Shown here is a 77-nucleotide sequence from Thrips palmi, a member of the family "mir-10 microRNA precursor family". Lineage of the source: Eukaryota > Insecta > Thysanoptera > Terebrantia > Thrips. A search with the family's covariance model found it, with a score of 54 bits. Its family is annotated with miRNA-mediated post-transcriptional gene silencing and RISC complex in the Gene Ontology.

[Rfam]
RNA sequence: CGUGAUCUACCCUGUAGAUCCGGGCUUUUGUAGAAAUCAGUAGAUAUCAGAAGCUCGACUCUACAGGUAUCUCACGG
Dot-bracket structure: .((((....((....(((..((((((((((.................))))))))))..)))...))....))))..